[Rfam]
RNA sequence: UCGCAAGCCUUCCAGCAUGGCUGGGUCUGCGCUGUGACCCUGAUCAUUCCUGCAGUGCUUGCCAGAGCAGUUGUGAGAUGGUUUGAGGGCCCCCUCUGCCCCGACUUCGGAGGGAGGUUAUAGAAAUCUCGGCCAAGC
Number, nucleotide and partner (000 for none) at each position: 001u000002c000003g062004c061005a060006a059007g058008c057009c000010u000011u000012c000013c000014a000015g000016c000017a000018u046019g045020g044021c000022u000023g040024g039025g038026u037027c036028u000029g000030c000031g000032c000033u000034g000035u000036g027037a026038c025039c024040c023041u000042g000043a000044u020045c019046a018047u000048u000049c000050c000051u000052g000053c000054a000055g000056u000057g008058c007059u006060u005061g004062c003063c000064a000065g000066a000067g000068c000069a000070g000071u000072u000073g000074u131075g130076a129077g128078a127079u000080g000081g000082u000083u000084u000085g000086a000087g000088g000089g000090c116091c000092c114093c113094c112095u000096c110097u109098g108099c000100c000101c000102c000103g000104a000105c000106u000107u000108c098109g097110g096111a000112g094113g093114g092115a000116g090117g000118u000119u000120a000121u000122a000123g000124a000125a000126a000127u078128c077129u076130c075131g074132g000133c000134c000135a000136a000137g000138c000

The family of this 138-nucleotide RNA sequence from Podarcis muralis is "Small nucleolar RNA SNORA9". Its family is annotated with RNA processing and nucleolus in the Gene Ontology. About the family: ACA9 is a member of the H/ACA class of snoRNA that guide the sites of modification of uridines to pseudouridines. Its Rfam clan is "SNORA9 clan". Lineage of the source: Eukaryota > Craniata > Gnathostomata > Lepidosauria > Podarcis. The family has 36 seed sequences and 1,202 matches in Rfam 15.1.